[Rfam]
RNA: U11 spliceosomal RNA
RNA sequence: AAAAAGGGCUUCUGUCGUGAGUGACACACAUAGGGCAGCUCGUUUGCUCUACGUGCAGAAUCGACAUCCAUGAUUUUGGAAUCAUGGUUUUUGUUGUUUGAGCAGCUGGUGAUCGUGGAUCCUGUAAA
Numbered sequence: 001a002a003a004a005a006g007g008g009c010u011u012c013u014g015u016c017g018u019g020a021g022u023g024a025c026a027c028a029c030a031u032a033g034g035g036c037a038g039c040u041c042g043u044u045u046g047c048u049c050u051a052c053g054u055g056c057a058g059a060a061u062c063g064a065c066a067u068c069c070a071u072g073a074u075u076u077u078g079g080a081a082u083c084a085u086g087g088u089u090u091u092u093g094u095u096g097u098u099u100g101a102g103c104a105g106c107u108g109g110u111g112a113u114c115g116u117g118g119a120u121c122c123u124g125u126a127a128a
Base pairs, nucleotide, nucleotide: 008083010081011080012079013026014025015024016023017022027055028054029053031051032050033049034048035047036046037045038044056078057077058076059075060074061073062072107124108123109122111121112120113119114118